U4atac minor spliceosomal RNA: a 133-nucleotide RNA sequence from Aquarana catesbeiana. Gene Ontology terms of the family: spliceosomal tri-snRNP complex assembly, mRNA 5'-splice site recognition and pre-mRNA 5'-splice site binding. The match comes from Rfam's covariance-model search (80 bits). The organism belongs to Aquarana, within Eukaryota.

[Rfam]
RNA sequence: ACCAUCCUUCUCUUGGGGUUGAGCUGCUGAUUAAUGAAUGUUUACUGAGGUCAGUACUGCUAACACCACAAACAACACUGAAGCAUCCCUAACAUAUAGAUAUGUAUGUUAGUGAGAUGCAAUUUUUGGACCC
Numbered sequence: 001a002c003c004a005u006c007c008u009u010c011u012c013u014u015g016g017g018g019u020u021g022a023g024c025u026g027c028u029g030a031u032u033a034a035u036g037a038a039u040g041u042u043u044a045c046u047g048a049g050g051u052c053a054g055u056a057c058u059g060c061u062a063a064c065a066c067c068a069c070a071a072a073c074a075a076c077a078c079u080g081a082a083g084c085a086u087c088c089c090u091a092a093c094a095u096a097u098a099g100a101u102a103u104g105u106a107u108g109u110u111a112g113u114g115a116g117a118u119g120c121a122a123u124u125u126u127u128g129g130a131c132c133c
Stems, first nucleotide, its partner, number of pairs: 006018004021060001023058001026055007038046001083120005088114001091110008

Rfam classes the family as a spliceosomal small nuclear RNA.
U4atac is an essential component of the minor U12-type spliceosome complex which is required for removal of the rarer class of eukaryotic introns (AT-AC, U12-type).